RNA sequence: UAUUGAUAAAGGCAAACCUGUUGAAAAGCAGCGACGCAAAGUUUCCGGUCUAAGGCAAAAAACCUUUGAUAGCGGGGCCGCCAAA
Numbered sequence: 001u002a003u004u005g006a007u008a009a010a011g012g013c014a015a016a017c018c019u020g021u022u023g024a025a026a027a028g029c030a031g032c033g034a035c036g037c038a039a040a041g042u043u044u045c046c047g048g049u050c051u052a053a054g055g056c057a058a059a060a061a062a063c064c065u066u067u068g069a070u071a072g073c074g075g076g077g078c079c080g081c082c083a084a085a
Base pairs, nucleotide, nucleotide: 012037013036018031019030020029021028022027041078042077043076045075046074047073048070049069050068055064

This 85-nucleotide sequence from Sideroxydans lithotrophicus belongs to the Rfam family "c-di-GMP-I riboswitch aptamer".
Taxonomically the source falls in Sideroxydans lithotrophicus (Bacteria, Pseudomonadati, Nitrosomonadales, Gallionellaceae).
The match comes from Rfam's covariance-model search (66 bits).
From the family's description: GEMM was predicted in a large-scale screen for bacterial structured RNA regulatory elements.